[Rfam]
RNA: Selenocysteine insertion sequence 1
RNA sequence: GUUGCCUAAAUGAAGUCAGGUGCAGAAACUAUGCUCUAGUGGUGCCUGUUGGAUGCCGGGCAAC
Numbered sequence: 001g002u003u004g005c006c007u008a009a010a011u012g013a014a015g016u017c018a019g020g021u022g023c024a025g026a027a028a029c030u031a032u033g034c035u036c037u038a039g040u041g042g043u044g045c046c047u048g049u050u051g052g053a054u055g056c057c058g059g060g061c062a063a064c
Base pairs, nucleotide, nucleotide: 001064002063003062004061005060015050017048018047019046020045021044022043023042029039030038031037